[Rfam]
RNA sequence: GACUUACAUUCAGUGGCAAGCUUAACCGAAUAGGGCAGGCGUAGCGAAAGCGAGUCCGAACAGGGCGUCCAGUCGCUGGGUGUAGACCCGAAACCAGGUGAUCUAUCCAUGGCCAGGUUGAAGGCACGGUAACACGUGCUGGAGGACCGAACCCACUAACGUUGAAAAGUUAGGGGAUGAGCUGUGGAUAGGGGUGAAAGGCUAAACAAACCUGGAAAUAGCUGGUU
Number, nucleotide and partner (000 for none) at each position: 001g000002a000003c000004u000005u084006a083007c082008a081009u080010u079011c078012a077013g076014u075015g074016g073017c072018a000019a000020g040021c039022u038023u037024a000025a000026c034027c033028g000029a000030a000031u000032a000033g027034g026035g000036c000037a023038g022039g021040c020041g000042u000043a000044g051045c050046g000047a000048a000049a000050g045051c044052g000053a000054g066055u065056c064057c063058g000059a000060a000061c000062a000063g057064g056065g055066c054067g000068u000069c000070c000071a000072g017073u016074c015075g014076c013077u012078g011079g010080g009081u008082g007083u006084a005085g000086a000087c225088c224089c000090g222091a000092a000093a000094c215095c214096a213097g212098g211099u210100g000101a000102u000103c191104u190105a189106u188107c187108c186109a185110u184111g183112g182113c181114c179115a000116g148117g147118u146119u145120g000121a000122a000123g140124g139125c138126a137127c136128g135129g000130u000131a000132a000133c000134a000135c128136g127137u126138g125139c124140u123141g000142g000143a000144g000145g119146a118147c117148c116149g000150a000151a000152c176153c175154c174155a000156c173157u172158a171159a170160c169161g000162u000163u000164g000165a000166a000167a000168a000169g160170u159171u158172a157173g156174g154175g153176g152177a000178u000179g114180a000181g113182c112183u111184g110185u109186g108187g107188a106189u105190a104191g103192g000193g203194g202195u201196g000197a000198a000199a000200g000201g195202c194203u193204a000205a000206a000207c000208a000209a000210a099211c098212c097213u096214g095215g094216a000217a000218a000219u000220a000221g000222c090223u000224g088225g087226u000227u000
RNA: Bacterial large subunit ribosomal RNA, nucleotides 581 to 807